[Rfam]
RNA sequence: UGCUGUUUGGGUUCCUGACAUGAUGAUUUAAGAUUUGAGAUUAAAAUCAUAUUGCCAGGGAUUACCACAUAGCC
Numbered sequence: 001u002g003c004u005g006u007u008u009g010g011g012u013u014c015c016u017g018a019c020a021u022g023a024u025g026a027u028u029u030a031a032g033a034u035u036u037g038a039g040a041u042u043a044a045a046a047u048c049a050u051a052u053u054g055c056c057a058g059g060g061a062u063u064a065c066c067a068c069a070u071a072g073c074c
Stems, first nucleotide, its partner, number of pairs: 002073001004071003008067003011062007019054002023050007
RNA: mir-23 microRNA precursor family